[Rfam]
This 70-nucleotide RNA sequence from Pteropus vampyrus belongs to the Rfam family "mir-28 microRNA precursor family".
Rfam links the family to the GO terms RISC complex and miRNA-mediated post-transcriptional gene silencing.

RNA sequence: CCUUUUAUCUAGGAGUUCACAAUCUAGUGUGUGUGUUCCCCCACUAGAUUGUGAACUCCUAGAUGAAAGG
Numbered sequence: 001c002c003u004u005u006u007a008u009c010u011a012g013g014a015g016u017u018c019a020c021a022a023u024c025u026a027g028u029g030u031g032u033g034u035g036u037u038c039c040c041c042c043a044c045u046a047g048a049u050u051g052u053g054a055a056c057u058c059c060u061a062g063a064u065g066a067a068a069g070g
Stems, first nucleotide, its partner, number of pairs: 001070029